[Rfam]
RNA: Small nucleolar RNA R12
RNA sequence: AUGUUGGAUGAUGAAGAAAAUCAUUCGGAUUCCCAUUGAUUUCCGUAACAUGAUAUUAUUAACCAGCUACUUCUGAAACAU
Numbered sequence: 001a002u003g004u005u006g007g008a009u010g011a012u013g014a015a016g017a018a019a020a021u022c023a024u025u026c027g028g029a030u031u032c033c034c035a036u037u038g039a040u041u042u043c044c045g046u047a048a049c050a051u052g053a054u055a056u057u058a059u060u061a062a063c064c065a066g067c068u069a070c071u072u073c074u075g076a077a078a079c080a081u
Stems, first nucleotide, its partner, number of pairs: 001081005